[Rfam]
Notes: A member of the RNA family "6S / SsrS RNA" from Anaerocolumna jejuensis, 178 nucleotides long. Rfam 15.1 lists 5,006 matches to the family in 4,638 species. NCBI's taxonomy places the organism under Bacteria, Clostridia, Lachnospirales, Lachnospiraceae, Anaerocolumna jejuensis. From the family's description: E. coli 6S RNA was the first non coding RNA to be sequenced, but its function was unknown until recently. It consists of 184 nucleotides that fold into an extended hairpin structure with a large single-stranded internal bulge. The 6S RNA specifically associates with RNA polymerase holoenzyme containing the sigma70 specificity factor. This interaction represses expression from a sigma70-dependent promoter during stationary phase. 6S RNA homologs have recently been identified in most bacterial genomes. The family's RNA type in Rfam is non-coding RNA gene. The base pairs follow the family's consensus structure, which is taken from published work.
RNA sequence: UAUUUCCUGGGAUGUGCGACACUCCUGUUAUUUUGAACCUACAACAUUUAUAAGGGAUUCCUAAUUUGUAAGAUUAUGUCAAGCCACCGUUUGCAGUGGAAGACAGAGGCUUUCAUGCGGAAACCCACCUAGCUUUUGCUAGGAGUCAAAAUACAGGAAACGGCGUUUCGGGUUAUUG
Numbered sequence: 001u002a003u004u005u006c007c008u009g010g011g012a013u014g015u016g017c018g019a020c021a022c023u024c025c026u027g028u029u030a031u032u033u034u035g036a037a038c039c040u041a042c043a044a045c046a047u048u049u050a051u052a053a054g055g056g057a058u059u060c061c062u063a064a065u066u067u068g069u070a071a072g073a074u075u076a077u078g079u080c081a082a083g084c085c086a087c088c089g090u091u092u093g094c095a096g097u098g099g100a101a102g103a104c105a106g107a108g109g110c111u112u113u114c115a116u117g118c119g120g121a122a123a124c125c126c127a128c129c130u131a132g133c134u135u136u137u138g139c140u141a142g143g144a145g146u147c148a149a150a151a152u153a154c155a156g157g158a159a160a161c162g163g164c165g166u167u168u169c170g171g172g173u174u175a176u177u178g
Stems, first nucleotide, its partner, number of pairs: 002176002006172010017162002031151002034148003038143002054126003058122004067115002070112003079103002084099004